[Rfam]
Nucleotides: 180
Base pairs, nucleotide, nucleotide: 013088014087015086029078030077031076033074034073036070037069038068039067041065043063044062045061046060047059048054106171107170108169117159119157120156121155122154125152126151127150129144130143131142132141133140134139
Number, partner (000 for none) and nucleotide at each position: 001000g002000c003000a004000a005000g006000g007000c008000a009000g010000c011000g012000u013088g014087c015086a016000c017000a018000g019000u020000c021000u022000u023000c024000a025000c026000c027000u028000g029078u030077g031076u032000c033074u034073g035000a036070u037069g038068g039067c040000a041065g042000u043063g044062u045061c046060u047059g048054u049000g050000u051000u052000u053000u054048g055000c056000g057000u058000u059047c060046a061045g062044a063043u064000c065041c066000c067039g068038u069037u070036a071000c072000c073034c074033a075000c076031a077030c078029a079000a080000a081000c082000g083000c084000c085000a086015u087014g088013c089000a090000g091000c092000c093000a094000g095000a096000g097000c098000g099000c100000g101000a102000u103000u104000c105000a106171g107170g108169g109000u110000c111000a112000u113000a114000g115000u116000a117159c118000a119157g120156g121155c122154u123000u124000c125152g126151u127150g128000c129144u130143g131142u132141g133140u134139c135000u136000g137000u138000g139134g140133a141132c142131a143130c144129a145000u146000u147000c148000a149000c150127u151126g152125c153000a154122g155121g156120c157119c158000a159117g160000c161000c162000u163000c164000c165000a166000g167000g168000c169108c170107c171106c172000c173000a174000c175000a176000c177000a178000c179000a180000g